[Rfam]
Rfam assigns this 81-nucleotide RNA from Caenorhabditis remanei to the family "SmY spliceosomal RNA". It is one of the family's seed sequences. The organism belongs to Caenorhabditis, within Eukaryota. The family's RNA type in Rfam is spliceosomal small nuclear RNA. Rfam 15.1 lists 408 matches to the family in 67 species.
RNA sequence: UUUAGUAAUAGUAGUCUUUCAGGGCCUUCCUUAAGACCCGAAGAAUUAAUUUUUGGAGACCCUUUUCUUUGGAUUAGGGUG
Numbered sequence: 001u002u003u004a005g006u007a008a009u010a011g012u013a014g015u016c017u018u019u020c021a022g023g024g025c026c027u028u029c030c031u032u033a034a035g036a037c038c039c040g041a042a043g044a045a046u047u048a049a050u051u052u053u054u055g056g057a058g059a060c061c062c063u064u065u066u067c068u069u070u071g072g073a074u075u076a077g078g079g080u081g
Base pairs, nucleotide, nucleotide: 022039023038024037026035027034028033059080060079061078062077063076066073067072